[Rfam]
RNA sequence: CUGGCCCCGGUUCACGUGACGCAAACCCGCGGAGCGACCCGGCGCC
Numbered sequence: 001c002u003g004g005c006c007c008c009g010g011u012u013c014a015c016g017u018g019a020c021g022c023a024a025a026c027c028c029g030c031g032g033a034g035c036g037a038c039c040c041g042g043c044g045c046c
Base pairs, nucleotide, nucleotide: 003046004045005044007042008041009040010039015036016035017034020031021030022029
RNA: L31-Actinobacteria ribosomal protein leader
Organism: Streptomyces sp. URHA0041